[Rfam]
RNA sequence: UUUGGUGUCCGGGCCCCUCUGGCGCAUGUGGCGGCACAUGCGUGAUGUCGGCAUCGAUC
Numbered sequence: 001u002u003u004g005g006u007g008u009c010c011g012g013g014c015c016c017c018u019c020u021g022g023c024g025c026a027u028g029u030g031g032c033g034g035c036a037c038a039u040g041c042g043u044g045a046u047g048u049c050g051g052c053a054u055c056g057a058u059c
Base pairs, nucleotide, nucleotide: 006053007052009051010050011049012048022043023042024041025040026039027038028037029036
Dot-bracket structure: .....((.((((.........((((((((......))))))))....))))))......